[Rfam]
Rfam assigns this 108-nucleotide RNA sequence from Tsuneonella litorea to the family "TPP riboswitch aptamer (THI element)".

RNA sequence: CUGCCAUCCCCGGGGAGCGCGCCUGCGCUGAGAGGGGCGGAUGGCACCGCCCGACCCGUCGAACCUGAACCCGUUAGCACGGGCGGAGGGAAGGGUGCUUGCCAGCGC
Number, nucleotide and partner (000 for none) at each position: 001c000002u000003g000004c000005c000006a096007u095008c094009c093010c000011c058012g057013g056014g055015g000016a000017g028018c027019g026020c025021g000022c000023c000024u000025g020026c019027g018028c017029u000030g000031a000032g000033a000034g000035g052036g051037g050038c049039g048040g000041a000042u000043g000044g000045c000046a000047c000048c039049g038050c037051c036052c035053g000054a000055c014056c013057c012058g011059u000060c000061g000062a000063a000064c089065c088066u087067g000068a000069a000070c083071c082072c081073g080074u000075u000076a000077g000078c000079a000080c073081g072082g071083g070084c000085g000086g000087a066088g065089g064090g000091a000092a000093g009094g008095g007096u006097g000098c000099u000100u000101g000102c000103c000104a000105g000106c000107g000108c000

About this RNA:
The match comes from Rfam's covariance-model search (59 bits).